A member of the RNA family "Group II catalytic intron D1-D4-3" from Oligoflexus sp., 172 nucleotides long. It scores 147 bits against the family's covariance model. The source organism's lineage runs through Bacteria, Pseudomonadati, Bdellovibrionota, Oligoflexaceae and Oligoflexus. The base pairs follow the family's consensus structure.

[Rfam]
RNA sequence: UCCAUCGUGAGGUGGAAUCUGAAGGAAGCCGCAGGCAAAGCACUGGCCUGACGAGCAGAAAUUGCAUAUGAGGCUGCUGUGUGGGGUGAGAUGGCAUUUAUCAUCAAAGCCCAAUACUUACACAGAACGCACAGUAGUAGAUGCAGUGGGCAUAAGUGUGAAGGUGGGUGUG
Numbered sequence: 001u002c003c004a005u006c007g008u009g010a011g012g013u014g015g016a017a018u019c020u021g022a023a024g025g026a027a028g029c030c031g032c033a034g035g036c037a038a039a040g041c042a043c044u045g046g047c048c049u050g051a052c053g054a055g056c057a058g059a060a061a062u063u064g065c066a067u068a069u070g071a072g073g074c075u076g077c078u079g080u081g082u083g084g085g086g087u088g089a090g091a092u093g094g095c096a097u098u099u100a101u102c103a104u105c106a107a108a109g110c111c112c113a114a115u116a117c118u119u120a121c122a123c124a125g126a127a128c129g130c131a132c133a134g135u136a137g138u139a140g141a142u143g144c145a146g147u148g149g150g151c152a153u154a155a156g157u158g159u160g161a162a163g164g165u166g167g168g169u170g171u172g
Stems, first nucleotide, its partner, number of pairs: 001016006030170003035165002040159005046151005062146006073138003077134007084112004090105004